[Rfam]
RNA sequence: CGCAUGGGGACCGCGAUCUCCCCACGAGGCGACAGGCCUAAGCAUCGCGUCCUGCUCUCUUUGAUGGACGCACCCGCAUG
Numbered sequence: 001c002g003c004a005u006g007g008g009g010a011c012c013g014c015g016a017u018c019u020c021c022c023c024a025c026g027a028g029g030c031g032a033c034a035g036g037c038c039u040a041a042g043c044a045u046c047g048c049g050u051c052c053u054g055c056u057c058u059c060u061u062u063g064a065u066g067g068a069c070g071c072a073c074c075c076g077c078a079u080g
Base pairs, nucleotide, nucleotide: 005024006023007022008021009020010019047071048070049069050068051067052066